[Rfam]
RNA sequence: AGAGUUGGCGAGGUAGUUGCGGGGGUAGCAAUACUCCUGAGGAAAGUCCGGGCUUCCAAAAGAUCAGGCCUGCUGGGUAACGCCCAGUGCGCGCGAGCGUGAGGAUAGUGCCACAGAAACAUACCGCCGAUGGCCUACGGGCACAGGUAAGGGUGCAAGGGUGUGGUAAGAGCGCACCAGCAAUAUCGAGAGGUAUUGGCUCGGUAAACCCCGGCCGGAAGCAAGGUCACGAGGGUGCAAGGGUUGAUCUUUUUCCUGCCCCGCUAGCGAGAACCGCAAGAGGCAUUUGGUAACAAAUGUCCCAGAUAGAUAACUACUCUUUGGUCACAAAGAACAGAACCCGGCUUACGUCUAACUCUUUUC
Numbered sequence: 001a002g003a004g005u006u007g008g009c010g011a012g013g014u015a016g017u018u019g020c021g022g023g024g025g026u027a028g029c030a031a032u033a034c035u036c037c038u039g040a041g042g043a044a045a046g047u048c049c050g051g052g053c054u055u056c057c058a059a060a061a062g063a064u065c066a067g068g069c070c071u072g073c074u075g076g077g078u079a080a081c082g083c084c085c086a087g088u089g090c091g092c093g094c095g096a097g098c099g100u101g102a103g104g105a106u107a108g109u110g111c112c113a114c115a116g117a118a119a120c121a122u123a124c125c126g127c128c129g130a131u132g133g134c135c136u137a138c139g140g141g142c143a144c145a146g147g148u149a150a151g152g153g154u155g156c157a158a159g160g161g162u163g164u165g166g167u168a169a170g171a172g173c174g175c176a177c178c179a180g181c182a183a184u185a186u187c188g189a190g191a192g193g194u195a196u197u198g199g200c201u202c203g204g205u206a207a208a209c210c211c212c213g214g215c216c217g218g219a220a221g222c223a224a225g226g227u228c229a230c231g232a233g234g235g236u237g238c239a240a241g242g243g244u245u246g247a248u249c250u251u252u253u254u255c256c257u258g259c260c261c262c263g264c265u266a267g268c269g270a271g272a273a274c275c276g277c278a279a280g281a282g283g284c285a286u287u288u289g290g291u292a293a294c295a296a297a298u299g300u301c302c303c304a305g306a307u308a309g310a311u312a313a314c315u316a317c318u319c320u321u322u323g324g325u326c327a328c329a330a331a332g333a334a335c336a337g338a339a340c341c342c343g344g345c346u347u348a349c350g351u352c353u354a355a356c357u358c359u360u361u362u363c
Base pairs, nucleotide, nucleotide: 001359002358003357004356005355006354007353008352012318013317014316015315016314017313018312020039021038022037023036024035025034026033027032044347045346046345048344049343050342051341052340053221054220055219056218062251063250067216068215069214071213072212073087074086075085076084077083088102089100090099091098092097103211104210108209109208110205111204112203124152125151126148127147128146131143132142134140160178161177162176163175164174165173180200181198182197183196184195185194186193187192225275226274227273234262235261237259238258239257242256243255246252282301283300284299285298286297287296288295289294
Dot-bracket structure: ((((((((...(((((((.((((((((....))))))))....[[[.[[[[[((((.....[[...(((.(((((((.....)))))(((((....)))).)((...(((((...........(((((..((.(.....).))..)))..)).......((((((.......)))))).((((((((....))))))).)..)))..))))))))).))))...(((......((.(((..((..(...]])..))))).))..........)))......((((((((....))))))))..........))))))).....................]]]]]]]]....))))))))....